[Rfam]
RNA sequence: AAACUAACUUCGAUGGGUUUGUUAUACGUAAAUCAGUCCCACCGUUGUGAGUUUGU
Numbered sequence: 001a002a003a004c005u006a007a008c009u010u011c012g013a014u015g016g017g018u019u020u021g022u023u024a025u026a027c028g029u030a031a032a033u034c035a036g037u038c039c040c041a042c043c044g045u046u047g048u049g050a051g052u053u054u055g056u
Stems, first nucleotide, its partner, number of pairs: 001054005007048002011044002014041004019036003